Molybdenum/Tungsten riboswitch aptamer (Moco RNA motif): a 133-nucleotide RNA sequence from Peptococcaceae bacterium CEB3.
The family's consensus secondary structure is taken from published work.
The match comes from Rfam's covariance-model search (79 bits).
Gene Ontology terms of the family: regulation of gene expression, tungstate binding and molybdenum ion binding.
[Rfam]
RNA sequence: AUGUUAUCCGAUCUCCGAGCCAGAUAAGCCUAAUGAGUGAUCGACGGCUUCUGGCCAGGGCUUCGAGCCCUCGGGGUAUAUCCGGAAACGGGUAUGCCUUCACUUUUGGAAAAGGAGGUGGGCAGGCUGUCAG
Numbered sequence: 001a002u003g004u005u006a007u008c009c010g011a012u013c014u015c016c017g018a019g020c021c022a023g024a025u026a027a028g029c030c031u032a033a034u035g036a037g038u039g040a041u042c043g044a045c046g047g048c049u050u051c052u053g054g055c056c057a058g059g060g061c062u063u064c065g066a067g068c069c070c071u072c073g074g075g076g077u078a079u080a081u082c083c084g085g086a087a088a089c090g091g092g093u094a095u096g097c098c099u100u101c102a103c104u105u106u107u108g109g110a111a112a113a114g115g116a117g118g119u120g121g122g123c124a125g126g127c128u129g130u131c132a133g
Stems, first nucleotide, its partner, number of pairs: 003127002011119006019055006028048003034043003057071005074099011100110002